[Rfam]
About this RNA: A member of the RNA family "Small nucleolar RNA SNORA51" from Pipistrellus kuhlii, 131 nucleotides long.

RNA sequence: GCAUUCUAGUACUUCCCACAGGCUGUGUUUUUACACUAACUAUAUAGAAAGAAGAGAGGGAGUGAACCCACCCCAUAUACACCCCAGCCUGGACCCUUUGCCUGGUAUGUGUUGUGAAAGGGGGCAAGGGG
Numbered sequence: 001g002c003a004u005u006c007u008a009g010u011a012c013u014u015c016c017c018a019c020a021g022g023c024u025g026u027g028u029u030u031u032u033a034c035a036c037u038a039a040c041u042a043u044a045u046a047g048a049a050a051g052a053a054g055a056g057a058g059g060g061a062g063u064g065a066a067c068c069c070a071c072c073c074c075a076u077a078u079a080c081a082c083c084c085c086a087g088c089c090u091g092g093a094c095c096c097u098u099u100g101c102c103u104g105g106u107a108u109g110u111g112u113u114g115u116g117a118a119a120g121g122g123g124g125c126a127a128g129g130g131g
Base pairs, nucleotide, nucleotide: 002058004056005055006054007052020041021040025036026035027034028033071123072122073121074120076118085109086108089105090104091103092102094100
The organism belongs to Pipistrellus, within Eukaryota.